[Rfam]
RNA sequence: AAACGUUCACCCCUGUUUCGGGGGCGCAGACACUCCAAGCCACGGAACGGGGACUUGGA
Numbered sequence: 001a002a003a004c005g006u007u008c009a010c011c012c013c014u015g016u017u018u019c020g021g022g023g024g025c026g027c028a029g030a031c032a033c034u035c036c037a038a039g040c041c042a043c044g045g046a047a048c049g050g051g052g053a054c055u056u057g058g059a
Stems, first nucleotide, its partner, number of pairs: 004049005010024005034059006040052002
A member of the RNA family "Glutamine-II riboswitch aptamer", 59 nucleotides long.
The base pairs follow the family's consensus structure, which is taken from published work.
The sequence is in the family's curated seed alignment.